[Rfam]
Nucleotides: 173
Stems, first nucleotide, its partner, number of pairs: 016023002031147007044069001048065001050063005085121002087117001089116002094110004127137003150173010
Number, partner (000 for none) and nucleotide at each position: 001000u002000a003000a004000c005000a006000a007000c008000c009000g010000a011000a012000a013000g014000g015000a016023g017022g018000u019000g020000a021000u022017c023016c024000a025000g026000u027000g028000u029000c030000u031147c032146a033145u034144u035143g036142u037141c038000u039000a040000u041000c042000g043000c044069c045000g046000u047000u048065u049000g050063c051062g052061c053060g054059g055000a056000c057000u058000c059054u060053u061052g062051u063050g064000a065048a066000c067000u068000g069044g070000u071000c072000c073000c074000u075000c076000g077000g078000c079000u080000c081000g082000u083000u084000c085121g086120a087117g088000g089116g090115c091000u092000g093000c094110g095109c096108g097107g098000c099000u100000u101000a102000a103000u104000c105000u106000g107097c108096c109095g110094c111000c112000a113000g114000u115090g116089c117087c118000a119000g120086u121085c122000c123000g124000a125000g126000a127137c128136c129135g130000g131000g132000c133000u134000g135129c136128g137127g138000u139000u140000u141037g142036a143035c144034a145033a146032u147031g148000g149000a150173a151172g152171g153170g154169c155168u156167g157166u158165c159164c160000g161000c162000a163000a164159g165158g166157g167156c168155a169154g170153c171152c172151c173150u